[Rfam]
RNA sequence: ACUGCCAAAACCUCUGAUGCCGCAAGGCGUUGAGCAC
Numbered sequence: 001a002c003u004g005c006c007a008a009a010a011c012c013u014c015u016g017a018u019g020c021c022g023c024a025a026g027g028c029g030u031u032g033a034g035c036a037c
Stems, first nucleotide, its partner, number of pairs: 016031006